Shown here is a 100-nucleotide RNA from Scleropages formosus, a member of the family "Small nucleolar RNA SNORD16". The match comes from Rfam's covariance-model search (93 bits). Rfam classes the family as a C/D-box small nucleolar RNA. The family has 5 seed sequences and 1,321 matches in Rfam 15.1. On this family, see Fragapane et al., EMBO J 1993: "A novel small nucleolar RNA (U16) is encoded inside a ribosomal protein intron and originates by processing of the pre-mRNA".
RNA sequence: UACGGUGAUGGUGUAAUUUGCGUCUUACUUUGUGAAUGGCGACAGUUGCCUGCUGUCUUGAUGCCAUCACAAGAGGUUGACGAAAAUAUGAUUCUGAGUA
Numbered sequence: 001u002a003c004g005g006u007g008a009u010g011g012u013g014u015a016a017u018u019u020g021c022g023u024c025u026u027a028c029u030u031u032g033u034g035a036a037u038g039g040c041g042a043c044a045g046u047u048g049c050c051u052g053c054u055g056u057c058u059u060g061a062u063g064c065c066a067u068c069a070c071a072a073g074a075g076g077u078u079g080a081c082g083a084a085a086a087u088a089u090g091a092u093u094c095u096g097a098g099u100a
Base pairs, nucleotide, nucleotide: 001100002099003098021082022081023080024079030072031071032070033069034068039064040063041057042056043055044054045053